[Rfam]
RNA sequence: GUGUGAAAAAGGCAAAGCAACUGAAAAGUUGUGACGCAAAGCUACAGGGGCUAAGGUUUUAUGCUAUGUCAGCCAGCUACCGAA
Numbered sequence: 001g002u003g004u005g006a007a008a009a010a011g012g013c014a015a016a017g018c019a020a021c022u023g024a025a026a027a028g029u030u031g032u033g034a035c036g037c038a039a040a041g042c043u044a045c046a047g048g049g050g051c052u053a054a055g056g057u058u059u060u061a062u063g064c065u066a067u068g069u070c071a072g073c074c075a076g077c078u079a080c081c082g083a084a
Base pairs, nucleotide, nucleotide: 012037013036017032018031019030020029021028022027040078041077042076043075047074048073049070050069051068056064057063
RNA: c-di-GMP-I riboswitch aptamer
Organism: Effusibacillus dendaii